[Rfam]
RNA sequence: CGCUCAGUGAUUCAACCAUGUUAAAUCAUGGUAAUAUACGCUAUUCUGAUCCUCAUUAGGAUGUCAUAAGCUUUAUGAGAGCA
Number, nucleotide and partner (000 for none) at each position: 001c000002g082003c081004u080005c079006a000007g000008u000009g000010a000011u000012u000013c000014a000015a000016c000017c000018a000019u000020g000021u000022u000023a000024a000025a000026u000027c000028a000029u000030g000031g000032u000033a000034a000035u000036a000037u000038a000039c000040g000041c000042u000043a000044u000045u000046c000047u000048g000049a000050u000051c000052c000053u000054c000055a000056u000057u000058a000059g000060g000061a000062u000063g000064u000065c000066a000067u000068a000069a000070g000071c000072u000073u000074u000075a000076u000077g000078a000079g005080a004081g003082c002083a000

Shown here is an 83-nucleotide RNA sequence from Eragrostis curvula, a member of the family "Small nucleolar RNA U54". The family's consensus secondary structure was predicted with PFOLD. The match comes from Rfam's covariance-model search (72 bits). U54 is a C/D box small nucleolar RNA, which acts as a methylation guide for 18S ribosomal RNA in plants. Taxonomically the source falls in Eragrostis (Eukaryota, Spermatophyta, Magnoliopsida, commelinids). Its family is annotated with RNA processing and nucleolus in the Gene Ontology. Clan: U54 clan.